This 300-nucleotide RNA from Papaver nudicaule belongs to the Rfam family "Metazoan signal recognition particle RNA".
The family's RNA type in Rfam is non-coding RNA gene.
The match comes from Rfam's covariance-model search (201 bits).
The organism belongs to Papaver, within Eukaryota.
RNA sequence: GCUGGGAGUCGUGGCGUACUCCUGUCAUCCGGCGACUCGGAGGCUGGUGUGUGAGGAUGGCUGCGACCGGGAGCCAACCGGCACCUCUGCGCUCAUGGCGAUCGGGCGUCCGCACCGGGCUCGCCAUCAACAUGCGCCCCCUGGAGGAGUCCGGGCGGGCGCAGGUUCGCUAAGGAGGGGCGCACCGGGUCAGGGAGGCAACUCAGCAGCCAAAAGCUCCCGUGGCGAGCGGUGGUGGGAUCGCGCCCGAGAGUGAGGGCACGGUACCGGCCCGGGUCGUUCAGCCAGACCGCCCACCAA
Numbered sequence: 001g002c003u004g005g006g007a008g009u010c011g012u013g014g015c016g017u018a019c020u021c022c023u024g025u026c027a028u029c030c031g032g033c034g035a036c037u038c039g040g041a042g043g044c045u046g047g048u049g050u051g052u053g054a055g056g057a058u059g060g061c062u063g064c065g066a067c068c069g070g071g072a073g074c075c076a077a078c079c080g081g082c083a084c085c086u087c088u089g090c091g092c093u094c095a096u097g098g099c100g101a102u103c104g105g106g107c108g109u110c111c112g113c114a115c116c117g118g119g120c121u122c123g124c125c126a127u128c129a130a131c132a133u134g135c136g137c138c139c140c141c142u143g144g145a146g147g148a149g150u151c152c153g154g155g156c157g158g159g160c161g162c163a164g165g166u167u168c169g170c171u172a173a174g175g176a177g178g179g180g181c182g183c184a185c186c187g188g189g190u191c192a193g194g195g196a197g198g199c200a201a202c203u204c205a206g207c208a209g210c211c212a213a214a215a216g217c218u219c220c221c222g223u224g225g226c227g228a229g230c231g232g233u234g235g236u237g238g239g240a241u242c243g244c245g246c247c248c249g250a251g252a253g254u255g256a257g258g259g260c261a262c263g264g265u266a267c268c269g270g271c272c273c274g275g276g277u278c279g280u281u282c283a284g285c286c287a288g289a290c291c292g293c294c295c296a297c298c299a300a
Stems, first nucleotide, its partner, number of pairs: 001044003004023006028041003046298004051293003058287006064279004068274004078270004083265003088261003092257005102250008110239002113237005119230009129167003133163007140155006170174001177220005188211003195204003